Small nucleolar RNA Z162: a 92-nucleotide RNA from Macleaya cordata. Taxonomically the source falls in Macleaya (Eukaryota, Embryophyta, Euphyllophyta, Magnoliopsida).
RNA sequence: UUCGACACAAUGAGGAGAUUUUUAAAUGUAAAAUGAGAUCGAAAGAUCUAUGAAACCUAUCAAGCAUAAGUCCUUUUCAUUCUGAGUGUCGA
Number, nucleotide and partner (000 for none) at each position: 001u000002u000003c000004g090005a089006c088007a087008c086009a000010a080011u079012g078013a077014g076015g000016a000017g000018a000019u000020u000021u000022u000023u000024a000025a000026a000027u000028g000029u000030a000031a000032a000033a000034u000035g000036a000037g000038a047039u046040c045041g000042a000043a000044a000045g040046a039047u038048c000049u000050a000051u000052g000053a000054a000055a000056c000057c000058u000059a000060u000061c000062a000063a000064g000065c000066a000067u000068a000069a000070g000071u000072c000073c000074u000075u000076u014077u013078c012079a011080u010081u000082c000083u000084g000085a000086g008087u007088g006089u005090c004091g000092a000